[Rfam]
The family of this 171-nucleotide RNA sequence from Lacticaseibacillus camelliae is "Lysine riboswitch aptamer". The family's consensus secondary structure is taken from published work.
RNA sequence: CUAAGAAAUAGAGGUCGCGGAAACGACGAACGCUGAGGAGUGCCUGUCACGUUGAAUCAGCCGUAAGCGAAUCCGCCGAAACGCAUUCUGCCACAGGGGCAGGGCGCGUUGGGCCAGUUUGGGGAAACCCGCUGGACUGUCGAAGCCUAGCUUCGGAGCGCUAUGAUUCUG
Numbered sequence: 001c002u003a004a005g006a007a008a009u010a011g012a013g014g015u016c017g018c019g020g021a022a023a024c025g026a027c028g029a030a031c032g033c034u035g036a037g038g039a040g041u042g043c044c045u046g047u048c049a050c051g052u053u054g055a056a057u058c059a060g061c062c063g064u065a066a067g068c069g070a071a072u073c074c075g076c077c078g079a080a081a082c083g084c085a086u087u088c089u090g091c092c093a094c095a096g097g098g099g100c101a102g103g104g105c106g107c108g109u110u111g112g113g114c115c116a117g118u119u120u121g122g123g124g125a126a127a128c129c130c131g132c133u134g135g136a137c138u139g140u141c142g143a144a145g146c147c148u149a150g151c152u153u154c155g156g157a158g159c160g161c162u163a164u165g166a167u168u169c170u171g
Stems, first nucleotide, its partner, number of pairs: 008164004017076005024069002030064002032061005080110005086104006111138002114135004120131004140156007